[Rfam]
RNA sequence: GUACAUGCCGUGAUGAAGAAUAGUAGGUAAGGGUAAGAAGUGAAGAGAGACUGUGGAUGGUGCAAACAGUUCUUCUACCUUAGUGAAUGGACUUCUGAGCAGAUCGUCGAAACUAGUAGAUGCAUCCGGGUAGUCCCGUUACAGGCUUCAAAGUGACCGAUCUAAUUUAGAACGGUAAUUUGGGUGGUACCGCGGAUUCAAGCAUCAUUCGUCCCUUAU
Dot-bracket structure: ......((......((((.......(.((((......(((........((((((...........)))))))))....)))).).......))))...))..((((((..........)))).)).(((......))).................((((.((.......)).)))).....(((.......(((((...........))))))))....